[Rfam]
RNA sequence: UUAUAUUCUCAGGGCUGGGUGCAAUUCCCCAUCGGCGGUAAACAUGAUAAAGUAUUGCAUAGGAAGCUCGCGAGCGCUCAGGUUGCGUGCAGUCUGAUGUCAGCAGAUCCGGUGUAAUUCCGGGGCCGACGGUUAUAGUCCGGAUGGGAGAGAGUAACG
Numbered sequence: 001u002u003a004u005a006u007u008c009u010c011a012g013g014g015c016u017g018g019g020u021g022c023a024a025u026u027c028c029c030c031a032u033c034g035g036c037g038g039u040a041a042a043c044a045u046g047a048u049a050a051a052g053u054a055u056u057g058c059a060u061a062g063g064a065a066g067c068u069c070g071c072g073a074g075c076g077c078u079c080a081g082g083u084u085g086c087g088u089g090c091a092g093u094c095u096g097a098u099g100u101c102a103g104c105a106g107a108u109c110c111g112g113u114g115u116a117a118u119u120c121c122g123g124g125g126c127c128g129a130c131g132g133u134u135a136u137a138g139u140c141c142g143g144a145u146g147g148g149a150g151a152g153a154g155u156a157a158c159g
Stems, first nucleotide, its partner, number of pairs: 004156007017029003031139002033128002035071004066126002074104002108124005130142003